[Rfam]
RNA sequence: GAAAGGCUGCUUUUCGCCAAUUGCAGCUGGGUGUUUUACCGAGGCACCCCAAUUAGG
Numbered sequence: 001g002a003a004a005g006g007c008u009g010c011u012u013u014u015c016g017c018c019a020a021u022u023g024c025a026g027c028u029g030g031g032u033g034u035u036u037u038a039c040c041g042a043g044g045c046a047c048c049c050c051a052a053u054u055a056g057g
Base pairs, nucleotide, nucleotide: 005028006027007026008025009024010023029049030048031047032046033045034044035043036042037041
Annotation
The record is a 57-nucleotide RNA from Blautia wexlerae, which matches "S4-Clostridia ribosomal protein leader" in Rfam. The sequence is in the family's curated seed alignment. Its Rfam clan is "Ribosomal Protein S4 Leader clan".